U4 spliceosomal RNA: a 129-nucleotide sequence from Terrapene triunguis. Gene Ontology terms of the family: U4 snRNP and spliceosomal tri-snRNP complex assembly. From the family's description: U4 small nuclear RNA (U4 snRNA) is a component of the major U2-dependent spliceosome. Rfam classes the family as a spliceosomal small nuclear RNA. The organism belongs to Terrapene, within Eukaryota. The base pairs follow the family's consensus structure, which is taken from published work.
RNA sequence: ACCCUCAAGUUGUAUCAUAGCCAAUGAGGUUAAUCCAAGGCGUGAUUAUUGCUAGUUGAAAACUUAUCCUUCCAAAAUUUUUGUUAGCAUUAAUUGUGAUAACUCUGGAUAUUCUUGUUAUCCAUAUAA
Numbered sequence: 001a002c003c004c005u006c007a008a009g010u011u012g013u014a015u016c017a018u019a020g021c022c023a024a025u026g027a028g029g030u031u032a033a034u035c036c037a038a039g040g041c042g043u044g045a046u047u048a049u050u051g052c053u054a055g056u057u058g059a060a061a062a063c064u065u066a067u068c069c070u071u072c073c074a075a076a077a078u079u080u081u082u083g084u085u086a087g088c089a090u091u092a093a094u095u096g097u098g099a100u101a102a103c104u105c106u107g108g109a110u111a112u113u114c115u116u117g118u119u120a121u122c123c124a125u126a127u128a129a
Stems, first nucleotide, its partner, number of pairs: 014046005020041003028036002078109003083103004088098003